[Rfam]
RNA sequence: GUCUCGGUGAAGAGCUCUGGACCAUAGGAAGUGCCGUAUGACACUGUAAAAAGCAGCUGUUUCUCUGCCGCUGCAAGUGCCUGUCCUCUUAUCCUCACCUCUGUGGUUUGGUCUAGGAUGGAAAUACCCAUUUGCGCCAGCUUGAUUCAGUUGUGUGAGUGAUUUUAAACGGGUCUCUGACGGAU
Numbered sequence: 001g002u003c004u005c006g007g008u009g010a011a012g013a014g015c016u017c018u019g020g021a022c023c024a025u026a027g028g029a030a031g032u033g034c035c036g037u038a039u040g041a042c043a044c045u046g047u048a049a050a051a052a053g054c055a056g057c058u059g060u061u062u063c064u065c066u067g068c069c070g071c072u073g074c075a076a077g078u079g080c081c082u083g084u085c086c087u088c089u090u091a092u093c094c095u096c097a098c099c100u101c102u103g104u105g106g107u108u109u110g111g112u113c114u115a116g117g118a119u120g121g122a123a124a125u126a127c128c129c130a131u132u133u134g135c136g137c138c139a140g141c142u143u144g145a146u147u148c149a150g151u152u153g154u155g156u157g158a159g160u161g162a163u164u165u166u167a168a169a170c171g172g173g174u175c176u177c178u179g180a181c182g183g184a185u
Base pairs, nucleotide, nucleotide: 001185002184003183004182070137071136073135074134075133076132077131078130079129081121082120083119084118085117086116091112092111093110097107098106099105
The family of this 185-nucleotide sequence from Triticum aestivum is "Small nucleolar RNA Z112".
It is annotated as a C/D-box small nucleolar RNA.
The base pairs follow the family's consensus structure, which was predicted with PFOLD.
Lineage of the source: Eukaryota > Streptophytina > Poales > Triticinae > Triticum.
Rfam links the family to the GO terms RNA processing and nucleolus.
A search with the family's covariance model found it, with a score of 134 bits.
The family has 6 seed sequences and 427 matches in Rfam 15.1.
A reference for the family is Liang et al. (2002), "A novel gene organization: intronic snoRNA gene clusters from Oryza sativa", Nucleic Acids Res.